[Rfam]
RNA sequence: GUCCGGGUGGCGGAAUAGGUAGACGCGCUAGCUUGAGGUGCUAGUGCCCGUUAAGGGCGUGGAGGUUCAAGUCCUCUCUCGGACA
Dot-bracket structure: (((((((..(((...........))).(((((.......)))))................(((((.......)))))))))))).
Numbered sequence: 001g002u003c004c005g006g007g008u009g010g011c012g013g014a015a016u017a018g019g020u021a022g023a024c025g026c027g028c029u030a031g032c033u034u035g036a037g038g039u040g041c042u043a044g045u046g047c048c049c050g051u052u053a054a055g056g057g058c059g060u061g062g063a064g065g066u067u068c069a070a071g072u073c074c075u076c077u078c079u080c081g082g083a084c085a
Stems, first nucleotide, its partner, number of pairs: 001084007010026003028044005061077005
The family of this 85-nucleotide sequence from Tessaracoccus flavus is "tRNA". The family's consensus secondary structure is taken from published work. About the family: Transfer RNA (tRNA) molecules are approximately 80 nucleotides in length. By type it is a transfer RNA. The organism belongs to Tessaracoccus, within Bacteria.